Shown here is a 111-nucleotide sequence from Microthlaspi erraticum, a member of the family "MIR828 microRNA precursor family".
It scores 87 bits against the family's covariance model.
The organism belongs to Microthlaspi, within Eukaryota.

RNA sequence: CUAAUGUUUCUUGCUUAAAUGAGUAUUCCAUGGAAGUGAUUCACUCACAUAUAAAUGGAUGGGUUUCUCUUUAAUCUUUAAUGAGAUGCUCAUUUGAGCAAGCAAUGUUUG
Numbered sequence: 001c002u003a004a005u006g007u008u009u010c011u012u013g014c015u016u017a018a019a020u021g022a023g024u025a026u027u028c029c030a031u032g033g034a035a036g037u038g039a040u041u042c043a044c045u046c047a048c049a050u051a052u053a054a055a056u057g058g059a060u061g062g063g064u065u066u067c068u069c070u071u072u073a074a075u076c077u078u079u080a081a082u083g084a085g086a087u088g089c090u091c092a093u094u095u096g097a098g099c100a101a102g103c104a105a106u107g108u109u110u111g
Base pairs, nucleotide, nucleotide: 004108005107006106007105008104010102011101012100013099014098015097016096017095018094019093020092021091022090023089024088025087026086027085029083030082
Rfam 15.1 lists 204 matches to the family in 134 species. Pairs were carried over by alignment from the consensus structure, which was predicted with RNAalifold.